Background:
The record is a 113-nucleotide sequence from Punica granatum, which matches "Small nucleolar RNA Z107/R87" in Rfam. On this family, see Barneche et al., J Mol Biol 2001: "Identification of 66 box C/D snoRNAs in Arabidopsis thaliana: extensive gene duplications generated multiple isoforms predicting new ribosomal RNA 2'-O-methylation sites". Pairs were carried over by alignment from the consensus structure, which was predicted with RNAfold. NCBI's taxonomy places the organism under Eukaryota, Streptophytina, Spermatophyta, rosids, Punica. It scores 78 bits against the family's covariance model. Rfam classes the family as a C/D-box small nucleolar RNA. Its family is annotated with nucleolus and RNA processing in the Gene Ontology.
RNA sequence: UGGGGCGAUGAUGACUCAAUGAAAUUCAAGCUCAACAGACCGGAAUGCAGGGCCAAGGCUCUGAGGAGCUUUGCUUGCUUUGCGUGUCGACAACCCCGCUGAACUGAGUCCCA
Numbered sequence: 001u002g003g004g005g006c007g008a009u010g011a012u013g014a015c016u017c018a019a020u021g022a023a024a025u026u027c028a029a030g031c032u033c034a035a036c037a038g039a040c041c042g043g044a045a046u047g048c049a050g051g052g053c054c055a056a057g058g059c060u061c062u063g064a065g066g067a068g069c070u071u072u073g074c075u076u077g078c079u080u081u082g083c084g085u086g087u088c089g090a091c092a093a094c095c096c097c098g099c100u101g102a103a104c105u106g107a108g109u110c111c112c113a
Stems, first nucleotide, its partner, number of pairs: 001113006